[Rfam]
RNA sequence: CGGGUCGGCUGGGCGAUCGCGUGGCAGCGGGCAACCGCUGCUCCGAGGAAAGUCCGGGCUCCACAGAGCGGGGUGGUGGGUAACGCCCACCCGAGGCAACUCGCGGGAAAGUGCCACAGAAAGCAGACCGCCUCACUCUCCGCGAGGAGGGAGAGGUAAGGGUGAAACGGUGGGGUAAGAGCCCACCAGCGCCCCGGGUGACCGGAGCGGCUCGGCAAACCCCACCCGGAGCAAGACCAGACAGUGCACGCCCGAGGGCUGCUCGCCCGAGUGCACGGGUAGGUCGCUGGAGACGGCCGGCAACGGUCGCCGUAGAUGGAUGGUCGCCCUCGACAGAACCCGGCUUACAGGCCGGCCCGUCCC
Dot-bracket structure: ((((((((((((((((((.((.((((((........)))))).))....[[[.[[[[[((((...[[[[.((((((((((.....)))))(((((....)))).)((...(((((............(((((((.((((((....)))))).)))))..)).......((((((.......)))))).((((.((((....)))).))).)..)))..)))))))))))))...((((.....((((((......((((.]]]]))))..)))))).....))))......(.((((((....)))))).)..........)))))))..........]]]]]]]].).))))))))))....
RNA: Bacterial RNase P class A
Organism: Nocardioides thalensis